[Rfam]
Shown here is a 54-nucleotide RNA from Oncorhynchus tshawytscha, a member of the family "UnaL2 LINE 3' element".
The family's RNA type in Rfam is cis-regulatory element.
From the family's description: The eel long interspersed element (LINE) UnaL2 and its partner short interspersed element (SINE) share a conserved 3' tail containing a stem-loop that is critical for their retrotransposition. Presumably, the first step of retrotransposition is the recognition of their 3' tails by UnaL2-encoded reverse transcriptase. The solution structure of a 17-nucleotide RNA derived from the 3' tail of UnaL2 was determined by NMR.
It scores 58 bits against the family's covariance model.

RNA sequence: AUUAAUUGCUCCUGUAAGUCUCUCUGGAUAAGAGCGUCUGCUAAAUGACUCAAA
Numbered sequence: 001a002u003u004a005a006u007u008g009c010u011c012c013u014g015u016a017a018g019u020c021u022c023u024c025u026g027g028a029u030a031a032g033a034g035c036g037u038c039u040g041c042u043a044a045a046u047g048a049c050u051c052a053a054a
Stems, first nucleotide, its partner, number of pairs: 013043001014041003020036001022034004
NCBI's taxonomy places the organism under Eukaryota, Opisthokonta, Neopterygii, Euteleosteomorpha, Oncorhynchus.